RNA sequence: AUUUAAAUAAUAAAUCCGUAUAAACCUAGUGCAGAAGAGGUGAACACUCUGCUAGGAACAUGUGGUAAAUAAGUCUUAGUAAUUAUUGUGAGGGAUACCUUAUAAUAAUUGCUUAAGUAGGUUACUGUGAGGUAGCUGAACUGUAGGUAACCGCCUAUAAGCAUAAGCAUGUUGCAAAGAAUGUAUUUGCGUAAUGUAUGACGAACUUGUUCCCCACACAAUAUACGUCCCUGUGGGAAAUAAUCCUAAGCUCUGUUAAGUGUGACAACUUAUUAUCUUAGGAAGGUCAAUAAGAGGGGUUGCUGUGAUGGUUAGAAAUAGCCUAUAAAACAAGAAGUCAGUACGAAGUAGGUUAAGGCAGUUUUGGUAUGCGAAUAUCUUAAAAAGUAAAAAUACUUUUAAUUAUUUGAAUCUGAAUGUUUAGCUGAAAAGUUGGUACCUAUCAUGGUAGCCAUAGCGACGAACUUGCAGUAAGAAAUCAUAAGGUAGCUCCUUAUGGUUCAGACUUACUGAGCUAUUAACAUAAUAACGUUGGUACAUUUGGCGUAGGUUGAAGGACCUAUACGGUUUUAUUAUUUA
Dot-bracket structure: ......((((((((.(((((((..(((((......((((.......)))).)))))..(((((..............((((((.(((((((((....))))))))).))))))....(.(((((((....))))))).)....(((((....))))).........)))))......(((........(.....(...((((...((((((((((.(..........((((...)))).....((((((.....((.((((.[[[[.))))))....))))))..]]]]....).))))[[[[[.....(((((....))))).....))))))..))))...(......((((((]]]]]..................................................[[[[.....)))))).....)...((.............)).((((........).(..(..((..(.(((((((.....)))))))..)]]]].))..)...))))..........)...)......)))......((((....))))))))))).))))))))...